A member of the RNA family "Small nucleolar RNA SNORD34" from Lamprotornis superbus, 74 nucleotides long. Rfam classes the family as a C/D-box small nucleolar RNA. The match comes from Rfam's covariance-model search (50 bits). About the family: snoRNA U34 is found in intron 5 of the ribosomal protein L13a gene in humans. Its family is annotated with nucleolus and RNA processing in the Gene Ontology. NCBI's taxonomy places the organism under Eukaryota, Dipnotetrapodomorpha, Archelosauria, Aves, Lamprotornis.
RNA sequence: CGGUGUCCGUGAUGUCACUUUUACCUACAUUGUUUGACUGUUUCUGAGAAAAAAAAACAAAUCCUGAGACACCU
Numbered sequence: 001c002g003g004u005g006u007c008c009g010u011g012a013u014g015u016c017a018c019u020u021u022u023a024c025c026u027a028c029a030u031u032g033u034u035u036g037a038c039u040g041u042u043u044c045u046g047a048g049a050a051a052a053a054a055a056a057a058c059a060a061a062u063c064c065u066g067a068g069a070c071a072c073c074u
Stems, first nucleotide, its partner, number of pairs: 002073001004071004